[Rfam]
RNA sequence: AGUAUAUAAAUUGUAUUACCUCAUAUAUGUUCGAAAAUAAGGUUCGAAUGUCUCUACCAAGUUACCGUAAAUUACUUGACUAUGAAGGUGAGUGAACGGUAU
Numbered sequence: 001a002g003u004a005u006a007u008a009a010a011u012u013g014u015a016u017u018a019c020c021u022c023a024u025a026u027a028u029g030u031u032c033g034a035a036a037a038u039a040a041g042g043u044u045c046g047a048a049u050g051u052c053u054c055u056a057c058c059a060a061g062u063u064a065c066c067g068u069a070a071a072u073u074a075c076u077u078g079a080c081u082a083u084g085a086a087g088g089u090g091a092g093u094g095a096a097c098g099g100u101a102u
Stems, first nucleotide, its partner, number of pairs: 019087001021085005029049007058078005064072001

Rfam assigns this 102-nucleotide RNA sequence from Kurthia sibirica to the family "Purine riboswitch aptamer". Lineage of the source: Bacteria > Bacillota > Bacilli > Caryophanaceae > Kurthia. Rfam links the family to the GO term purine nucleobase biosynthetic process.